[Rfam]
RNA sequence: ACUUGUAAAAGGCAAAUCUAUCGAAAGGUAGAGACGCAAAGCUACGGGUCUACGGUCAUAUGACUAUGACAGCCGGGUUGCCAAG
Numbered sequence: 001a002c003u004u005g006u007a008a009a010a011g012g013c014a015a016a017u018c019u020a021u022c023g024a025a026a027g028g029u030a031g032a033g034a035c036g037c038a039a040a041g042c043u044a045c046g047g048g049u050c051u052a053c054g055g056u057c058a059u060a061u062g063a064c065u066a067u068g069a070c071a072g073c074c075g076g077g078u079u080g081c082c083a084a085g
Stems, first nucleotide, its partner, number of pairs: 012037002017032006040079004045075003048070003055064003
c-di-GMP-I riboswitch aptamer: an 85-nucleotide sequence from Acetivibrio clariflavus. The match comes from Rfam's covariance-model search (87 bits).